[Rfam]
RNA sequence: UCUAGUCUCGGCUUGAGUAUCCUUACGGGCUUUUCGGCUGAGGCUAAUAAAAUUAGGAGUGCGUUAAAUGGCCCGUAUAGCUGGCAUUAACAUUCCUCUA
Numbered sequence: 001u002c003u004a005g006u007c008u009c010g011g012c013u014u015g016a017g018u019a020u021c022c023u024u025a026c027g028g029g030c031u032u033u034u035c036g037g038c039u040g041a042g043g044c045u046a047a048u049a050a051a052a053u054u055a056g057g058a059g060u061g062c063g064u065u066a067a068a069u070g071g072c073c074c075g076u077a078u079a080g081c082u083g084g085c086a087u088u089a090a091c092a093u094u095c096c097u098c099u100a
Stems, first nucleotide, its partner, number of pairs: 004045010021084002026075004